The family of this 93-nucleotide RNA sequence from Salarias fasciatus is "Vault RNA". NCBI's taxonomy places the organism under Eukaryota, Opisthokonta, Ovalentaria, Salariinae, Salarias. It is annotated as a non-coding RNA gene. This family of RNAs are found as part of the enigmatic vault ribonucleoprotein complex. For this family Rfam cites "Evolution of Vault RNAs" (Stadler et al., Mol Biol Evol, 2009).
RNA sequence: GCGCCGGUUAAGCUCAGUGGUUACUUCAAGCAUGUUCCGACCCCGCGGGCCGCGGACUAACGGGUUCGACUACGGGCGCUGUCCGGUGUUUUA
Dot-bracket structure: .((((((....((((.((((.....((.(....................................).)))))))))).....)))))).....
It scores 54 bits against the family's covariance model.